[Rfam]
RNA sequence: GCUCGCAUGGCUUAGUUGGUAAAGCGCGUGACUAGUAAUCACGAGAUCCUCGGUUCGAAUCCGAGUGCGAGCA
Number, nucleotide and partner (000 for none) at each position: 001g072002c071003u070004c069005g068006c067007a066008u000009g000010g025011c024012u023013u022014a000015g000016u000017u000018g000019g000020u000021a000022a013023a012024g011025c010026g000027c043028g042029u041030g040031a039032c000033u000034a000035g000036u000037a000038a000039u031040c030041a029042c028043g027044a000045g000046a000047u000048c000049c065050u064051c063052g062053g061054u000055u000056c000057g000058a000059a000060u000061c053062c052063g051064a050065g049066u007067g006068c005069g004070a003071g002072c001073a000
Shown here is a 73-nucleotide RNA from Monascus purpureus, a member of the family "tRNA". Taxonomically the source falls in Monascus (Eukaryota, saccharomyceta, Pezizomycotina, Eurotiomycetes). Rfam 15.1 lists 5,335,975 matches to the family in 14,413 species. The family's RNA type in Rfam is transfer RNA. Transfer RNA (tRNA) molecules are approximately 80 nucleotides in length. Their secondary structure includes four short double-helical elements and three loops (D, anti-codon, and T loops). Further hydrogen bonds mediate the characteristic L-shaped molecular structure. tRNAs have two regions of fundamental functional importance: the anti-codon, which is responsible for specific mRNA codon recognition, and the 3' end, to which the tRNAs corresponding amino acid is attached (by aminoacyl-tRNA synthetases). tRNAs cope with the degeneracy of the genetic code in two manners: having more than one tRNA (with a specific anti-codon) for a particular amino acid; and 'wobble' base-pairing, i.e. permitting non-standard base-pairing at the 3rd anti-codon position.